Shown here is a 63-nucleotide RNA sequence from Actinomadura kijaniata, a member of the family "Actino-pnp RNA". It scores 68 bits against the family's covariance model. Lineage of the source: Bacteria > Bacillati > Actinomycetota > Actinomycetes > Actinomadura.

[Rfam]
RNA sequence: GCCGGUCCUCGGUAGUGGCCUCCGGAUCCAUCGGCGAUCCGGACGCUUCGAUCGAAGACCGGC
Numbered sequence: 001g002c003c004g005g006u007c008c009u010c011g012g013u014a015g016u017g018g019c020c021u022c023c024g025g026a027u028c029c030a031u032c033g034g035c036g037a038u039c040c041g042g043a044c045g046c047u048u049c050g051a052u053c054g055a056a057g058a059c060c061g062g063c
Stems, first nucleotide, its partner, number of pairs: 001063007009055005017047003021043008